[Rfam]
RNA sequence: GGUAUUGUUUACCCCAUUUGAAAGGCCCCGGAACCCUUCAAAUAACCCGUGGACCGGAACAUCCACACCGUAAACAUCAA
Numbered sequence: 001g002g003u004a005u006u007g008u009u010u011a012c013c014c015c016a017u018u019u020g021a022a023a024g025g026c027c028c029c030g031g032a033a034c035c036c037u038u039c040a041a042a043u044a045a046c047c048c049g050u051g052g053a054c055c056g057g058a059a060c061a062u063c064c065a066c067a068c069c070g071u072a073a074a075c076a077u078c079a080a
Stems, first nucleotide, its partner, number of pairs: 006076007016043005022038004
RNA: Ribosomal protein L13 leader
Organism: Streptococcus minor